[Rfam]
RNA sequence: UGACCAUAGAAAUCAAGAAUGGGUGGAACCUGUUAGUAUAAGAGUAGGCGACCCACACUUGGUUUCCAUGGCCG
Numbered sequence: 001u002g003a004c005c006a007u008a009g010a011a012a013u014c015a016a017g018a019a020u021g022g023g024u025g026g027a028a029c030c031u032g033u034u035a036g037u038a039u040a041a042g043a044g045u046a047g048g049c050g051a052c053c054c055a056c057a058c059u060u061g062g063u064u065u066c067c068a069u070g071g072c073c074g
Base pairs, nucleotide, nucleotide: 002073004071005070006069007068009066010065011064012063013062014061016059017058021054022053023052024051029048030047031046
Overview:
This 74-nucleotide sequence from Pogona vitticeps belongs to the Rfam family "mir-551 microRNA precursor family". Rfam links the family to the GO terms miRNA-mediated post-transcriptional gene silencing and RISC complex. A reference for the family is Shao et al. (2008), "Identification of novel chicken microRNAs and analysis of their genomic organization", Gene. The family's consensus secondary structure was predicted with RNAalifold.